[Rfam]
RNA sequence: UCGACUGUACUCGAACAGGAUCACUUAUGUAGUGAUUUCCUUUCGUUCACAAGAGUACUCUUGACAAAACCCUAAACCGUGAUGAUGAUGAGUAUACCACAUCUACUCGGAGGUUUAGUCCACUCCACUAACAUGGUAGUGCGACUUCGAUGAGUUAAACUCCUUACGGGGAGCGUUGGGUGAUGGUAAUACUGAGCGGUU
Numbered sequence: 001u002c003g004a005c006u007g008u009a010c011u012c013g014a015a016c017a018g019g020a021u022c023a024c025u026u027a028u029g030u031a032g033u034g035a036u037u038u039c040c041u042u043u044c045g046u047u048c049a050c051a052a053g054a055g056u057a058c059u060c061u062u063g064a065c066a067a068a069a070c071c072c073u074a075a076a077c078c079g080u081g082a083u084g085a086u087g088a089u090g091a092g093u094a095u096a097c098c099a100c101a102u103c104u105a106c107u108c109g110g111a112g113g114u115u116u117a118g119u120c121c122a123c124u125c126c127a128c129u130a131a132c133a134u135g136g137u138a139g140u141g142c143g144a145c146u147u148c149g150a151u152g153a154g155u156u157a158a159a160c161u162c163c164u165u166a167c168g169g170g171g172a173g174c175g176u177u178g179g180g181u182g183a184u185g186g187u188a189a190u191a192c193u194g195a196g197c198g199g200u201u
Stems, first nucleotide, its partner, number of pairs: 003039001006035001008034004017028001019026002043067001045065003049061001051059001076200005095188005100182006107157001109155001117146003121141001160173004